[Rfam]
RNA: Group II catalytic intron D1-D4-7
Organism: Paracoccus onubensis
RNA sequence: CCGGCUGUUCCAUCAGCCAUUCCCUACCCGGGCAUGCGGAGCUGGUAACGGCUCGGUGUGAAGCUCUGGGGACAAUGUAGCCGCCGGACAUCCUGACGGUCCUUGCAGAGCUGGUCCGCGAUGCUGGC
Dot-bracket structure: ..(((((......))))).........((((((((((.((((((....)))))).)))))....)))))............((.(((.....))).))((.....((....))....)).........
Numbered sequence: 001c002c003g004g005c006u007g008u009u010c011c012a013u014c015a016g017c018c019a020u021u022c023c024c025u026a027c028c029c030g031g032g033c034a035u036g037c038g039g040a041g042c043u044g045g046u047a048a049c050g051g052c053u054c055g056g057u058g059u060g061a062a063g064c065u066c067u068g069g070g071g072a073c074a075a076u077g078u079a080g081c082c083g084c085c086g087g088a089c090a091u092c093c094u095g096a097c098g099g100u101c102c103u104u105g106c107a108g109a110g111c112u113g114g115u116c117c118g119c120g121a122u123g124c125u126g127g128c
Stems, first nucleotide, its partner, number of pairs: 003018005028069005033060005039054006082098002085095003099119002106113002